A member of the RNA family "Small nucleolar RNA Z161/Z228" from Asparagus officinalis, 96 nucleotides long. For this family Rfam cites "The high diversity of snoRNAs in plants: identification and comparative study of 120 snoRNA genes from Oryza sativa" (Chen et al., Nucleic Acids Res, 2003). Clan: SNORD35 clan.

RNA sequence: GAACCAGGUGAUGAGAAUGGUUUUAAAUCUCAUGACGGUCAUCUGAGAUACUCUUUAGGGGUGUCCAUGUUGAUGUACCACCAAUAUCUGAUGGUU
Numbered sequence: 001g002a003a004c005c006a007g008g009u010g011a012u013g014a015g016a017a018u019g020g021u022u023u024u025a026a027a028u029c030u031c032a033u034g035a036c037g038g039u040c041a042u043c044u045g046a047g048a049u050a051c052u053c054u055u056u057a058g059g060g061g062u063g064u065c066c067a068u069g070u071u072g073a074u075g076u077a078c079c080a081c082c083a084a085u086a087u088c089u090g091a092u093g094g095u096u
Stems, first nucleotide, its partner, number of pairs: 001096002004093001049063006